Rfam assigns this 179-nucleotide RNA from Enterovibrio norvegicus to the family "DABA-DC-AT RNA". Rfam's curators put it in the seed alignment.
RNA sequence: ACAAUCUCGAACAUCGCGCUUUUCGAGACACACGCGACACGGUGAUUAACGCCUUGGUUUGAUACCCAUUUCACACGUAGUUGUCGCAAGUAGGUAUUGGAGAAUAGUUCUCCAAUAGAAGGGCAUUAAUAGUGCUGUCCGGCCUGAGAAAGGCUUGGGGCAUAUUGAGGAACCCAACU
Numbered sequence: 001a002c003a004a005u006c007u008c009g010a011a012c013a014u015c016g017c018g019c020u021u022u023u024c025g026a027g028a029c030a031c032a033c034g035c036g037a038c039a040c041g042g043u044g045a046u047u048a049a050c051g052c053c054u055u056g057g058u059u060u061g062a063u064a065c066c067c068a069u070u071u072c073a074c075a076c077g078u079a080g081u082u083g084u085c086g087c088a089a090g091u092a093g094g095u096a097u098u099g100g101a102g103a104a105u106a107g108u109u110c111u112c113c114a115a116u117a118g119a120a121g122g123g124c125a126u127u128a129a130u131a132g133u134g135c136u137g138u139c140c141g142g143c144c145u146g147a148g149a150a151a152g153g154c155u156u157g158g159g160g161c162a163u164a165u166u167g168a169g170g171a172a173c174c175c176a177a178c179u
Stems, first nucleotide, its partner, number of pairs: 006027006034087006095117010138159003141155005
Dot-bracket structure: .....((((((..........))))))......((((((..........................................)))))).......((((((((((...))))))))))....................((((((((.....))))).)))....................
The organism belongs to Enterovibrio norvegicus, within Bacteria. It is annotated as a cis-regulatory element.